[Rfam]
A member of the RNA family "RAGATH-13 RNA" from Legionella pneumophila, 96 nucleotides long.
The organism belongs to Legionella pneumophila, within Bacteria.
For this family Rfam cites "New classes of self-cleaving ribozymes revealed by comparative genomics analysis" (Weinberg et al., Nat Chem Biol, 2015).
RNA sequence: ACUGAUUUGCCCCUGAACUGAGCCUUGAGGCACUACGCCUGGUACUGCAAUCUUGCAGGCCGCUCUACCAACACUAAACAAAAUACCAGGGCAAAA
Numbered sequence: 001a002c003u004g005a006u007u008u009g010c011c012c013c014u015g016a017a018c019u020g021a022g023c024c025u026u027g028a029g030g031c032a033c034u035a036c037g038c039c040u041g042g043u044a045c046u047g048c049a050a051u052c053u054u055g056c057a058g059g060c061c062g063c064u065c066u067a068c069c070a071a072c073a074c075u076a077a078a079c080a081a082a083a084u085a086c087c088a089g090g091g092c093a094a095a096a
Stems, first nucleotide, its partner, number of pairs: 006095007019067001020065004028040004041061003045058002
Its family is annotated with catalytic activity in the Gene Ontology.